[Rfam]
RNA: Bacterial large subunit ribosomal RNA, nucleotides 9 to 553
RNA sequence: GCGAAAAGGGCGUUUGGUGGAUGCCUUGGCAGCAAGAGGCGAUGAAGGACGUGAUACUCUGCGAUAAGCGUCGGUGAGGUGAGAAUAACCUUUGACCCGACGAUCUCCGAAUGGGGCAACCCACCUGACAGUAUCGUAUUAUCUUCCCUCGGGAAGUUGAUACGGCGCUGAACCAGGUACUUAUUACCUGAAUACAUAGGGUUUUAAGAGCAAACCCGGGGAACUGAAACAUCUAAGUACCCGGAGGAAAGGAAAUCAACAGAUACUCCCCUAGUAGCGGCGAGCGAACGGGGACCAGCCGAGCCGUGAGUGUGACUGGAACACGUUGGAAAACGUGACCAUAGCGGGUGACAGUCCCGUACAGGAAGCAUGAUCGGACGCAUUAAGUAGGGCGGGACACGUGAAAUCCUGUCUGAAGAUCGGGGGACCACCCUCGAAGGCUAAGUACUCCUUGCUGACCGAUAGCGAACCAGUACCGUGAGGGAAAGGUGAAAAGCACCCCGACGAGGGGAGUGAAACAGUACCUGAAACCGAACGCCUACAAU
Numbered sequence: 001g002c003g004a005a006a007a008g009g010g011c012g013u014u015u016g017g018u019g020g021a022u023g024c025c026u027u028g029g030c031a032g033c034a035a036g037a038g039g040c041g042a043u044g045a046a047g048g049a050c051g052u053g054a055u056a057c058u059c060u061g062c063g064a065u066a067a068g069c070g071u072c073g074g075u076g077a078g079g080u081g082a083g084a085a086u087a088a089c090c091u092u093u094g095a096c097c098c099g100a101c102g103a104u105c106u107c108c109g110a111a112u113g114g115g116g117c118a119a120c121c122c123a124c125c126u127g128a129c130a131g132u133a134u135c136g137u138a139u140u141a142u143c144u145u146c147c148c149u150c151g152g153g154a155a156g157u158u159g160a161u162a163c164g165g166c167g168c169u170g171a172a173c174c175a176g177g178u179a180c181u182u183a184u185u186a187c188c189u190g191a192a193u194a195c196a197u198a199g200g201g202u203u204u205u206a207a208g209a210g211c212a213a214a215c216c217c218g219g220g221g222a223a224c225u226g227a228a229a230c231a232u233c234u235a236a237g238u239a240c241c242c243g244g245a246g247g248a249a250a251g252g253a254a255a256u257c258a259a260c261a262g263a264u265a266c267u268c269c270c271c272u273a274g275u276a277g278c279g280g281c282g283a284g285c286g287a288a289c290g291g292g293g294a295c296c297a298g299c300c301g302a303g304c305c306g307u308g309a310g311u312g313u314g315a316c317u318g319g320a321a322c323a324c325g326u327u328g329g330a331a332a333a334c335g336u337g338a339c340c341a342u343a344g345c346g347g348g349u350g351a352c353a354g355u356c357c358c359g360u361a362c363a364g365g366a367a368g369c370a371u372g373a374u375c376g377g378a379c380g381c382a383u384u385a386a387g388u389a390g391g392g393c394g395g396g397a398c399a400c401g402u403g404a405a406a407u408c409c410u411g412u413c414u415g416a417a418g419a420u421c422g423g424g425g426g427a428c429c430a431c432c433c434u435c436g437a438a439g440g441c442u443a444a445g446u447a448c449u450c451c452u453u454g455c456u457g458a459c460c461g462a463u464a465g466c467g468a469a470c471c472a473g474u475a476c477c478g479u480g481a482g483g484g485a486a487a488g489g490u491g492a493a494a495a496g497c498a499c500c501c502c503g504a505c506g507a508g509g510g511g512a513g514u515g516a517a518a519c520a521g522u523a524c525c526u527g528a529a530a531c532c533g534a535a536c537g538c539c540u541a542c543a544a545u
Stems, first nucleotide, its partner, number of pairs: 008540010023525001024489002028460002030457007037449002039211002047108003050063003069102006078090003113122003123178005180208004186202004215246001216244005226233002256263002266445001267294005277285002297442004305376002316364003322337005340344001346358003390414008421436005476483002499511004